[Rfam]
RNA sequence: AACACCUUUUAAGAGAGGUCCAGAGAGGCUUAGAAGGGUGUUUCGGUGACGCGCAGGGAAACUUGAACCCAUUAUAGGGGACAGGUAUACCUUAGUGGAUCCAAAACACCCUGGCUUAAAAAGGUCAGGGUGUUUUUUAU
Number, nucleotide and partner (000 for none) at each position: 001a000002a000003c000004a000005c037006c036007u035008u034009u033010u000011a000012a000013g000014a000015g000016a031017g030018g029019u028020c027021c000022a000023g000024a000025g000026a000027g020028g019029c018030u017031u016032a000033g009034a008035a007036g006037g005038g000039u000040g000041u000042u000043u000044c000045g000046g000047u000048g000049a000050c000051g000052c000053g000054c000055a000056g000057g090058g000059a088060a000061a086062c085063u084064u083065g082066a000067a000068c079069c078070c077071a000072u000073u000074a000075u000076a000077g070078g069079g068080g000081a000082c065083a064084g063085g062086u061087a000088u059089a000090c057091c000092u000093u000094a000095g000096u000097g000098g000099a000100u000101c000102c000103a000104a135105a134106a133107c132108a131109c130110c129111c128112u127113g126114g125115c124116u123117u122118a000119a000120a000121a000122a117123g116124g115125u114126c113127a112128g111129g110130g109131u108132g107133u106134u105135u104136u000137u000138u000139a000140u000
RNA: PyrR binding site
Organism: Bacillus salacetis